[Rfam]
RNA sequence: ACGGAAGUCGGGUGAGGCCAAGGCCGAGCCGGAAGAGAAGGCUCGAUCUCCCGAUCUCGACUCCCUAGCACGGGUCCCGGUACCCACGCGGAGCACAUACCGCCAUACAGGUAGAAGUGUUGCGGGCCUGCGUAAUUGCGGAGAUCGGGCGGCCACGAGAGCCCUUUGGGUAGGGCGACGGUCGCAGCGGAUCGCAAGGACGCCGAGGUCACCCACGCAACCCCUUACGCACGCUUGGUAACCGGAGGUCCGUGCUAGCGGGCGGUGAGCCGAUGUGGUCGACAGACCACUCGGAUCGCCGCCCGCUUCAUUUU
Dot-bracket structure: ..((.(((((((...((...((..((((((.........))))))..)).))...))))))).))(((((((((..(((((..(((.(((..((...((((........)))).....(((((((((((((((..((((((...(((.((((((......(((((......)))))...))))))..))).))))))..))))..))))).....)))))).......)).))).)))..)))))...)))))))))(((((((((((.(((...................))).)))))))))))........